The record is an 83-nucleotide RNA sequence from Enterocloster lavalensis, which matches "c-di-GMP-I riboswitch aptamer" in Rfam. The family is grouped with related families in Rfam's "c-di-GMP_I riboswitch clan". About the family: GEMM was predicted in a large-scale screen for bacterial structured RNA regulatory elements. Genes associated with GEMM are involved in a diverse array of functions, including chemotaxis regulation, signal transduction, secretion and chitin.
[Rfam]
RNA sequence: AGACUAUAAAGGCAAACCCGCCGAAAGGCGGCGGCGCAAAGCUACAGGGGCUAAACCGGACGGCAUGCCAGCCAGUUGCAGGA
Numbered sequence: 001a002g003a004c005u006a007u008a009a010a011g012g013c014a015a016a017c018c019c020g021c022c023g024a025a026a027g028g029c030g031g032c033g034g035c036g037c038a039a040a041g042c043u044a045c046a047g048g049g050g051c052u053a054a055a056c057c058g059g060a061c062g063g064c065a066u067g068c069c070a071g072c073c074a075g076u077u078g079c080a081g082g083a
Stems, first nucleotide, its partner, number of pairs: 012037002018031005040077004047073002049069003056063002